[Rfam]
A member of the RNA family "c-di-AMP riboswitch aptamer (ydaO/yuaA leader)" from Mangrovihabitans endophyticus, 223 nucleotides long. About the family: This family represents a conserved RNA structure found upstream of the ydaO and yuaA genes in Bacillus subtilis and related genes in other bacteria. The ydaO/yuaA element is thought to act as a genetic 'off' switch for the ydaO and yuaA genes in its native state. Lineage of the source: Bacteria > Bacillati > Actinomycetota > Micromonosporaceae > Mangrovihabitans. The match comes from Rfam's covariance-model search (42 bits).
RNA sequence: ACCGCUGGGACACCGAGUUUCGAAGGCAGGAGCGGGGGACCCACAGGUUCCACGACGGGCGGACGGCCGGAUCAUCCGGCGCGAUCCGUGGCCGGGGAUGCCGGCGCGGCUCGUGUCCGGGUCCACCGGGCGGGCGCUCGUCUCGGGGUGAAGCCGCAGCACGCGGCCGGGCCACCUCAGCCCGAACCCGACAGCUCACCUCGUAGGCGUGGAGGGUUCACAU
Numbered sequence: 001a002c003c004g005c006u007g008g009g010a011c012a013c014c015g016a017g018u019u020u021c022g023a024a025g026g027c028a029g030g031a032g033c034g035g036g037g038g039a040c041c042c043a044c045a046g047g048u049u050c051c052a053c054g055a056c057g058g059g060c061g062g063a064c065g066g067c068c069g070g071a072u073c074a075u076c077c078g079g080c081g082c083g084a085u086c087c088g089u090g091g092c093c094g095g096g097g098a099u100g101c102c103g104g105c106g107c108g109g110c111u112c113g114u115g116u117c118c119g120g121g122u123c124c125a126c127c128g129g130g131c132g133g134g135c136g137c138u139c140g141u142c143u144c145g146g147g148g149u150g151a152a153g154c155c156g157c158a159g160c161a162c163g164c165g166g167c168c169g170g171g172c173c174a175c176c177u178c179a180g181c182c183c184g185a186a187c188c189c190g191a192c193a194g195c196u197c198a199c200c201u202c203g204u205a206g207g208c209g210u211g212g213a214g215g216g217u218u219c220a221c222a223u
Stems, first nucleotide, its partner, number of pairs: 011209001013207002018031003032204006042145001146189003154166004169183004